[Rfam]
RNA sequence: CCAGAUAAUCCAUUAUCUGAGCUUAAGUGGCAUGCUAAAUUAGUAAUAAGUUAGUGUGAAGCCCACCUAAAUCCAUCUUAAACAGAUUUCAAUAAUUAGCUAAGAUGGUGAGCUAGAUAUCUAUGAAUAA
Numbered sequence: 001c002c003a004g005a006u007a008a009u010c011c012a013u014u015a016u017c018u019g020a021g022c023u024u025a026a027g028u029g030g031c032a033u034g035c036u037a038a039a040u041u042a043g044u045a046a047u048a049a050g051u052u053a054g055u056g057u058g059a060a061g062c063c064c065a066c067c068u069a070a071a072u073c074c075a076u077c078u079u080a081a082a083c084a085g086a087u088u089u090c091a092a093u094a095a096u097u098a099g100c101u102a103a104g105a106u107g108g109u110g111a112g113c114u115a116g117a118u119a120u121c122u123a124u125g126a127a128u129a130a
Stems, first nucleotide, its partner, number of pairs: 002019006027066004031058008040049003078091001080089003093115002096112001100107001
RNA: Group II catalytic intron D1-D4-7